The record is a 356-nucleotide RNA from Vitreimonas silvestris, which matches "Alphaproteobacteria transfer-messenger RNA" in Rfam. Clan: tRNA clan. Bacterial tmRNA, also known as 10Sa RNA or SsrA, is named for its dual tRNA and mRNA-like properties. Its role is to liberate the mRNA from a stalled ribosome. To accomplish this part of the tmRNA is used as a reading frame that ends in a translation stop signal. The broken mRNA is replaced in the ribosome by the tmRNA and translation of the tmRNA leads to addition of a proteolysis tag to the incomplete protein enabling recognition by a protease. The literature on the family includes a 1996 paper in RNA by Williams and Bartel, "Phylogenetic analysis of tmRNA secondary structure".
[Rfam]
Nucleotides: 356
Base pairs, nucleotide, nucleotide: 040057041056042055043054044053045052046051061194062193063192064191065190071187072186073184074183075182076181084173085172088170089169090168094110095109096108097107098106111155112154113153114152115151116150117149195206196205197204198203199217201215321336322335323334324333327352328351329350330349331348332347
Number, partner (000 for none) and nucleotide at each position: 001000c002000g003000a004000c005000u006000a007000g008000g009000c010000g011000c012000g013000c014000g015000g016000g017000a018000a019000c020000g021000g022000c023000u024000c025000g026000c027000c028000u029000a030000u031000a032000u033000u034000c035000g036000a037000c038000u039000c040057g041056u042055u043054c044053g045052g046051g047000c048000u049000u050000g051046c052045c053044c054043g055042g056041a057040c058000u059000a060000u061194g062193g063192c064191g065190a066000u067000a068000a069000a070000c071187g072186c073184g074183c075182a076181g077000a078000g079000a080000u081000a082000g083000g084173c085172g086000g087000a088170u089169c090168g091000g092000a093000c094110c095109c096108g097107g098106g099000u100000g101000c102000g103000a104000u105000g106098c107097c108096c109095g110094g111155c112154g113153g114152c115151u116150c117149c118000a119000c120000c121000a122000g123000u124000u125000u126000c127000a128000u129000c130000c131000c132000u133000c134000a135000u136000u137000c138000g139000g140000g141000g142000a143000u144000u145000g146000u147000a148000u149117g150116g151115g152114g153113c154112c155111g156000a157000a158000a159000u160000a161000g162000g163000a164000u165000c166000g167000a168090c169089g170088g171000a172085c173084g174000u175000u176000g177000a178000c179000g180000g181076c182075u183074g184073u185000u186072g187071c188000u189000u190065u191064u192063g193062c194061u195206c196205g197204g198203g199217u200000g201215g202000u203198c204197c205196c206195g207000u208000c209000a210000c211000a212000g213000g214000c215201c216000a217199a218000a219000c220000a221000g222000c223000a224000u225000a226000g227000u228000u229000g230000c231000g232000a233000a234000u235000g236000a237000c238000a239000a240000c241000a242000a243000c244000g245000c246000u247000g248000a249000a250000g251000a252000g253000u254000u255000c256000g257000c258000c259000c260000u261000c262000g263000c264000u265000g266000c267000g268000u269000a270000a271000g272000c273000a274000g275000c276000g277000c278000g279000a280000g281000u282000g283000u284000u285000c286000u287000c288000g289000c290000a291000c292000u293000a294000a295000g296000u297000c298000c299000u300000g301000a302000c303000g304000a305000g306000u307000a308000g309000c310000a311000u312000c313000c314000u315000c316000a317000g318000g319000c320000g321336g322335g323334g324333u325000c326000c327352c328351c329350c330349g331348g332347c333324g334323c335322c336321c337000g338000g339000c340000a341000a342000c343000a344000g345000a346000a347332g348331c349330c350329g351328g352327g353000g354000a355000u356000u